The record is a 315-nucleotide sequence from Conidiobolus coronatus, which matches "RNase MRP" in Rfam.
Rfam describes the family as follows. RNase MRP is an enzymatically active ribonucleoprotein with two distinct roles in eukaryotes. In mitochondria it plays a direct role in the initiation of mitochondrial DNA replication.
It scores 68 bits against the family's covariance model.
The family is grouped with related families in Rfam's "RNaseP clan".
Rfam links the family to the GO terms rRNA processing, ribonuclease MRP complex and ribonuclease MRP activity.
Lineage of the source: Eukaryota > Opisthokonta > Entomophthoromycetes > Conidiobolaceae > Conidiobolus coronatus.
[Rfam]
RNA sequence: GAAUGUCAGGAAGGAUUGUGUCAAUUGAAAUAUAAACCGAUAGGAAUGGUCUUGUAUUGAUUCCUCUCACAUAGUUUCAGGGCAAGUCCUCGGAUCCAUUCGCAACUCUAGGGUUGCGUGUCUAAUCUCACGAUUAGAGGGAAAGCCAAGCUAGUAAAUAGAUAGCCAAUCUUAACGGUGUGUUAUCUGGCCAUGAUGGGUUCGCCUUAGCUUCCUUCAUGCUGUUAUAGAUUGUUAUCAUCAUAUUCUUAGUUAUGCAAUCGGGAGAUAUACUUGUAUAUCUUCUAACACAACGAGGCUCACUCUCUUGACAUU
Numbered sequence: 001g002a003a004u005g006u007c008a009g010g011a012a013g014g015a016u017u018g019u020g021u022c023a024a025u026u027g028a029a030a031u032a033u034a035a036a037c038c039g040a041u042a043g044g045a046a047u048g049g050u051c052u053u054g055u056a057u058u059g060a061u062u063c064c065u066c067u068c069a070c071a072u073a074g075u076u077u078c079a080g081g082g083c084a085a086g087u088c089c090u091c092g093g094a095u096c097c098a099u100u101c102g103c104a105a106c107u108c109u110a111g112g113g114u115u116g117c118g119u120g121u122c123u124a125a126u127c128u129c130a131c132g133a134u135u136a137g138a139g140g141g142a143a144a145g146c147c148a149a150g151c152u153a154g155u156a157a158a159u160a161g162a163u164a165g166c167c168a169a170u171c172u173u174a175a176c177g178g179u180g181u182g183u184u185a186u187c188u189g190g191c192c193a194u195g196a197u198g199g200g201u202u203c204g205c206c207u208u209a210g211c212u213u214c215c216u217u218c219a220u221g222c223u224g225u226u227a228u229a230g231a232u233u234g235u236u237a238u239c240a241u242c243a244u245a246u247u248c249u250u251a252g253u254u255a256u257g258c259a260a261u262c263g264g265g266a267g268a269u270a271u272a273c274u275u276g277u278a279u280a281u282c283u284u285c286u287a288a289c290a291c292a293a294c295g296a297g298g299c300u301c302a303c304u305c306u307c308u309u310g311a312c313a314u315u
Base pairs, nucleotide, nucleotide: 002315003314004313005312006311007310008309009308010307011306014262015261016260017259018258019257025080026079027078028077029076030075031074040067042065043064044063045062046061085300086299088298089297090296091295101118102117103116104115105114106113107112122137123136124135125134126133127132167234168233169232173227174226175225176224177223178222189212190211191210198206199205264285265284266283267282268281269280270279271278